[Rfam]
RNA sequence: UCUGGCAGUGAUGACACACUUGCCCUCACUGAGAGAGCCACUCAGUAAUGAGAACCUCACCAUGUGCUCAGAUGAGUUUAAGCCAGA
Dot-bracket structure: ((((((...........................................................................))))))
Notes: The record is an 87-nucleotide sequence from Chelonia mydas, which matches "Small nucleolar RNA SNORD103/SNORD85" in Rfam. For this family Rfam cites "Identification of 13 novel human modification guide RNAs" (Vitali et al., Nucleic Acids Res, 2003). Rfam 15.1 lists 1,349 matches to the family in 595 species. Gene Ontology terms of the family: RNA processing and nucleolus.